[Rfam]
RNA sequence: AAAGGAAGUUAGCUCGGGAAUCUCUGUGUACAAACGUGAAUCACAACAAGCAGGGGGGAAGGUCUGAGGAGCCAGACAAGACUGAAAGGUCGAGUGUAGUAAAUACACAAAACGUCCAUCAGAAAACAGUCCGUGGACAUGAAAGCGGCGUUAUGGCCAUCUUUUUCUUUAGUCAAAUUCCCUUGACCACCGGCAACUCAAUUCAGACUACUCAACUUCCUUU
Numbered sequence: 001a002a003a004g005g006a007a008g009u010u011a012g013c014u015c016g017g018g019a020a021u022c023u024c025u026g027u028g029u030a031c032a033a034a035c036g037u038g039a040a041u042c043a044c045a046a047c048a049a050g051c052a053g054g055g056g057g058g059a060a061g062g063u064c065u066g067a068g069g070a071g072c073c074a075g076a077c078a079a080g081a082c083u084g085a086a087a088g089g090u091c092g093a094g095u096g097u098a099g100u101a102a103a104u105a106c107a108c109a110a111a112a113c114g115u116c117c118a119u120c121a122g123a124a125a126a127c128a129g130u131c132c133g134u135g136g137a138c139a140u141g142a143a144a145g146c147g148g149c150g151u152u153a154u155g156g157c158c159a160u161c162u163u164u165u166u167c168u169u170u171a172g173u174c175a176a177a178u179u180c181c182c183u184u185g186a187c188c189a190c191c192g193g194c195a196a197c198u199c200a201a202u203u204c205a206g207a208c209u210a211c212u213c214a215a216c217u218u219c220c221u222u223u
Base pairs, nucleotide, nucleotide: 001223002222003221004220008216009215010214013185016182017181018180019179022055023054024053025052026051037043038042064206065205066204067203068202071157072156073155080091081090082089083088094108095107096106097105098104111152112151113150114149115148116147129138130137131136187193188192
RNA: Nuclear RNase P